[Rfam]
RNA sequence: AAUAGGAGAACGACAAAUCAAAUUUUCUUCCUAAUUUUCAGCUUUUUUCUCCUAAAAAAAUUUAAAUCCAACUAAAAAUGCUAAAAAUUAAGAGGAAAAUCUUAUUUGUCAUUCUCCUAUU
Number, nucleotide and partner (000 for none) at each position: 001a121002a120003u119004a118005g117006g116007a115008g114009a113010a112011c000012g110013a109014c108015a107016a106017a105018u104019c000020a102021a000022a100023u099024u098025u097026u096027c000028u094029u093030c092031c000032u090033a089034a088035u087036u086037u085038u084039c000040a082041g081042c000043u000044u078045u077046u076047u075048u000049c000050u000051c000052c000053u000054a000055a000056a000057a000058a000059a000060a000061u000062u000063u000064a000065a000066a000067u000068c000069c000070a000071a000072c000073u000074a000075a047076a046077a045078a044079u000080g000081c041082u040083a000084a038085a037086a036087a035088u034089u033090a032091a000092g030093a029094g028095g000096a026097a025098a024099a023100u022101c000102u020103u000104a018105u017106u016107u015108g014109u013110c012111a000112u010113u009114c008115u007116c006117c005118u004119a003120u002121u001
This 121-nucleotide RNA from Gossypium anomalum belongs to the Rfam family "MIR7504 microRNA precursor family".
Taxonomically the source falls in Gossypium (Eukaryota, Magnoliopsida, Mesangiospermae, malvids).
The base pairs follow the family's consensus structure, which was predicted with RNAalifold.